[Rfam]
RNA: Plastid-psbA-1 3UTR RNA
RNA sequence: UGUCGAGGCUCCAUCUAUAAAUGGAUAGGACUUCGGUUUUAGUGUAGUGUGUAAGAGUUAAAAAGGAGCAAUACCUAAUCUCUUGUUCUAUCAAGAGAUUAGGUAUUGCUCCUUUUUU
Numbered sequence: 001u002g003u004c005g006a007g008g009c010u011c012c013a014u015c016u017a018u019a020a021a022u023g024g025a026u027a028g029g030a031c032u033u034c035g036g037u038u039u040u041a042g043u044g045u046a047g048u049g050u051g052u053a054a055g056a057g058u059u060a061a062a063a064a065g066g067a068g069c070a071a072u073a074c075c076u077a078a079u080c081u082c083u084u085g086u087u088c089u090a091u092c093a094a095g096a097g098a099u100u101a102g103g104u105a106u107u108g109c110u111c112c113u114u115u116u117u118u
Stems, first nucleotide, its partner, number of pairs: 010025005062115013076101003080097005